[Rfam]
RNA sequence: GGUUUCCUUACAGCAAAUCUAACGUUCUUUCACGUGGCAUAAACCAGAUUUAAGUCCAAAAAUUUAAAAAAAACUCCAAAACCUG
Numbered sequence: 001g002g003u004u005u006c007c008u009u010a011c012a013g014c015a016a017a018u019c020u021a022a023c024g025u026u027c028u029u030u031c032a033c034g035u036g037g038c039a040u041a042a043a044c045c046a047g048a049u050u051u052a053a054g055u056c057c058a059a060a061a062a063u064u065u066a067a068a069a070a071a072a073a074c075u076c077c078a079a080a081a082c083c084u085g
Stems, first nucleotide, its partner, number of pairs: 001083005
RNA: Class I RNA from Dictyostelium